[Rfam]
RNA sequence: CAAAACGUUGUUGCGACAGCAUUCCUGCGUAGUACGAGAGGAACCGCAGGUACGGACCAAUGGCACAAUACUUGUUCGAGCGAACAGUGGUAUGACGCUACGUCCGUUGGAUUAUGCCUGAACGCCUCUAAGGUCGUAUCCGUGCUGGACUGCAAUGAUAAAUAAGGGGCAAUUUGCAUUGUAUGGCUUCUAAACCAUUUAAAGUUUAUAAUUUAUUUUAUAAACGACAAUGGAUGUGAUGCCAAUGUAAUUUGUAACAUAGUAAAUUAGGAGGAUCUUCGAUCACCUGAUGCCGCGCUAGUUACAUAUAAAAGCAUUAUUUAAUACAAUGACAAAGCCUAGAAUCAAUUGUAAACGACUUUUGUAACAGGCAAGGUGUUGUAAGUGGUUGAGCAGCUGCCAUACUGCGAUCCACUGAAGCUUAUCCUUUGCUUGAUGAUUCGA
Numbered sequence: 001c002a003a004a005a006c007g008u009u010g011u012u013g014c015g016a017c018a019g020c021a022u023u024c025c026u027g028c029g030u031a032g033u034a035c036g037a038g039a040g041g042a043a044c045c046g047c048a049g050g051u052a053c054g055g056a057c058c059a060a061u062g063g064c065a066c067a068a069u070a071c072u073u074g075u076u077c078g079a080g081c082g083a084a085c086a087g088u089g090g091u092a093u094g095a096c097g098c099u100a101c102g103u104c105c106g107u108u109g110g111a112u113u114a115u116g117c118c119u120g121a122a123c124g125c126c127u128c129u130a131a132g133g134u135c136g137u138a139u140c141c142g143u144g145c146u147g148g149a150c151u152g153c154a155a156u157g158a159u160a161a162a163u164a165a166g167g168g169g170c171a172a173u174u175u176g177c178a179u180u181g182u183a184u185g186g187c188u189u190c191u192a193a194a195c196c197a198u199u200u201a202a203a204g205u206u207u208a209u210a211a212u213u214u215a216u217u218u219u220a221u222a223a224a225c226g227a228c229a230a231u232g233g234a235u236g237u238g239a240u241g242c243c244a245a246u247g248u249a250a251u252u253u254g255u256a257a258c259a260u261a262g263u264a265a266a267u268u269a270g271g272a273g274g275a276u277c278u279u280c281g282a283u284c285a286c287c288u289g290a291u292g293c294c295g296c297g298c299u300a301g302u303u304a305c306a307u308a309u310a311a312a313a314g315c316a317u318u319a320u321u322u323a324a325u326a327c328a329a330u331g332a333c334a335a336a337g338c339c340u341a342g343a344a345u346c347a348a349u350u351g352u353a354a355a356c357g358a359c360u361u362u363u364g365u366a367a368c369a370g371g372c373a374a375g376g377u378g379u380u381g382u383a384a385g386u387g388g389u390u391g392a393g394c395a396g397c398u399g400c401c402a403u404a405c406u407g408c409g410a411u412c413c414a415c416u417g418a419a420g421c422u423u424a425u426c427c428u429u430u431g432c433u434u435g436a437u438g439a440u441u442c443g444a
Base pairs, nucleotide, nucleotide: 007159008158009157010156011155012154013153014152017147018146019145020144022052024050025049026048027047028046029045053106054105055104056103057102061100062099063098068093069092070091071090072087073086074085075084076083077082108142109141110140116134117133118132119131176338177337179335180334181333182332342442343441344440345439346438347363348362351359368435369434370433371432372431373430374428375427376426378421379420385415386414387413388412393408394407395406396405